[Rfam]
RNA sequence: CCACUCUGGAAAGCGAUCCCUCAGGGAAUCCGCCGAUGGUGAAAGCGUUCGUCCCCGCUCGGAGGCGGCGUGAAUCUCUCAGGCACCACGACAGAGGGGGA
Number, nucleotide and partner (000 for none) at each position: 001c099002c098003a000004c096005u095006c094007u093008g092009g000010a000011a000012a000013g000014c000015g030016a029017u028018c000019c000020c000021u000022c000023a000024g000025g000026g000027a000028a017029u016030c015031c000032g084033c083034c082035g080036a079037u000038g000039g078040u000041g076042a000043a000044a000045g071046c070047g069048u068049u067050c000051g000052u000053c000054c000055c000056c000057g000058c000059u000060c000061g000062g000063a000064g000065g000066c000067g049068g048069c047070g046071u045072g000073a000074a000075u000076c041077u000078c039079u036080c035081a000082g034083g033084c032085a000086c000087c000088a000089c000090g000091a000092c008093a007094g006095a005096g004097g000098g002099g001100g000101a000